[Rfam]
RNA sequence: CUCAUUCAGACACUCCGAGCCGGACCGCCUAAACCGGCGGGCAUGGCGGCCGGCCGCCAGGGUGUAGCUGGAAACGGCUGCGCCUCCCGUUUGGAAAGGAGUGAAGAACAAUGCAGC
Numbered sequence: 001c002u003c004a005u006u007c008a009g010a011c012a013c014u015c016c017g018a019g020c021c022g023g024a025c026c027g028c029c030u031a032a033a034c035c036g037g038c039g040g041g042c043a044u045g046g047c048g049g050c051c052g053g054c055c056g057c058c059a060g061g062g063u064g065u066a067g068c069u070g071g072a073a074a075c076g077g078c079u080g081c082g083c084c085u086c087c088c089g090u091u092u093g094g095a096a097a098g099g100a101g102u103g104a105a106g107a108a109c110a111a112u113g114c115a116g117c
Stems, first nucleotide, its partner, number of pairs: 006108001011103006019054005025049005034041002060085011086094002
RNA: Molybdenum/Tungsten riboswitch aptamer (Moco RNA motif)
Organism: Thermacetogenium phaeum